[Rfam]
RNA sequence: UUAAAAAAGGAGCAAUACAUCUUUCUUGUUCUAUCAAGAGAGCGGUAUUGCUCCUUUUU
Numbered sequence: 001u002u003a004a005a006a007a008a009g010g011a012g013c014a015a016u017a018c019a020u021c022u023u024u025c026u027u028g029u030u031c032u033a034u035c036a037a038g039a040g041a042g043c044g045g046u047a048u049u050g051c052u053c054c055u056u057u058u059u
Base pairs, nucleotide, nucleotide: 006057007056008055009054010053011052012051013050014049015048016047017046021042023040024039025038026037027036028035
A member of the RNA family "Plastid-psbA-4 3UTR RNA" from Apium graveolens, 59 nucleotides long. By type it is a cis-regulatory element. For this family Rfam cites "Retrograde signaling in plants: A critical review focusing on the GUN pathway and beyond" (Richter et al., Plant Commun, 2023). The base pairs follow the family's consensus structure, which was predicted with LocARNA. From the family's description: Plastid psbA-4 is a non-coding RNA (ncRNA) present in plastids. It was identified in inverted repeat sequences in the 3 prime untranslate region (3UTR) of photosystem II quinone-binding protein (psbA). A search with the family's covariance model found it, with a score of 64 bits.